[Rfam]
RNA sequence: UAUGCUAUACUGGAUAAGUUGUCUGACAACCCUUGGUGCUUAUUUCCCUUUCACCAAGCAUAUUACAAACGGUAGAUCCGUUAAAGGAGAAACAAUG
Numbered sequence: 001u002a003u004g005c006u007a008u009a010c011u012g013g014a015u016a017a018g019u020u021g022u023c024u025g026a027c028a029a030c031c032c033u034u035g036g037u038g039c040u041u042a043u044u045u046c047c048c049u050u051u052c053a054c055c056a057a058g059c060a061u062a063u064u065a066c067a068a069a070c071g072g073u074a075g076a077u078c079c080g081u082u083a084a085a086g087g088a089g090a091a092a093c094a095a096u097g
Stems, first nucleotide, its partner, number of pairs: 018030005032058007045089001047087004068082005
A member of the RNA family "PreQ1-II (pre queuosine) riboswitch aptamer" from Streptococcus mutans, 97 nucleotides long.
Rfam describes the family as follows. preQ1-II riboswitch was first reported for Weinberg et al. 2007 it was recognised in Streptococcaceae and Lactococcus families in 5' untranslated regions of genes of a membrane protein classified as COG4708 or DUF988.
For this family Rfam cites "Identification of 22 candidate structured RNAs in bacteria using the CMfinder comparative genomics pipeline" (Weinberg et al., Nucleic Acids Res, 2007).
Its family is annotated with queuosine biosynthetic process in the Gene Ontology.
Pairs were carried over by alignment from the consensus structure, which is taken from published work.